[Rfam]
RNA sequence: AAGCACUUGAUACUAACCAAGCUGUCUAUACCGUGGUCUUGUGUCAAAGGCUGGUGAUAUGUUCUUGUAGCUGGGCUGAGGAAGUGCUAUAGUAAAACAAAAGCCAUGAAUCUUUUUUUUUUUUUAAGUUUUUAUUUUAUUUAUUUAUUUGAGAGAGAAAAAGGCAGAGAG
Numbered sequence: 001a002a003g004c005a006c007u008u009g010a011u012a013c014u015a016a017c018c019a020a021g022c023u024g025u026c027u028a029u030a031c032c033g034u035g036g037u038c039u040u041g042u043g044u045c046a047a048a049g050g051c052u053g054g055u056g057a058u059a060u061g062u063u064c065u066u067g068u069a070g071c072u073g074g075g076c077u078g079a080g081g082a083a084g085u086g087c088u089a090u091a092g093u094a095a096a097a098c099a100a101a102a103g104c105c106a107u108g109a110a111u112c113u114u115u116u117u118u119u120u121u122u123u124u125u126a127a128g129u130u131u132u133u134a135u136u137u138u139a140u141u142u143a144u145u146u147a148u149u150u151g152a153g154a155g156a157g158a159a160a161a162a163g164g165c166a167g168a169g170a171g
Stems, first nucleotide, its partner, number of pairs: 003087006015077001017075002020072006027061004032056001035052006103165003124134001126132002135162004
The record is a 171-nucleotide RNA sequence from Jaculus jaculus, which matches "Small Cajal body specific RNA 1" in Rfam.
A search with the family's covariance model found it, with a score of 81 bits.
scaRNAs are a specific class of small nuclear RNAs which localise to the Cajal bodies and guide the modification of RNA polymerase II transcribed spliceosomal RNAs U1, U2, U4, U5 and U12.
Rfam classes the family as a small Cajal body RNA.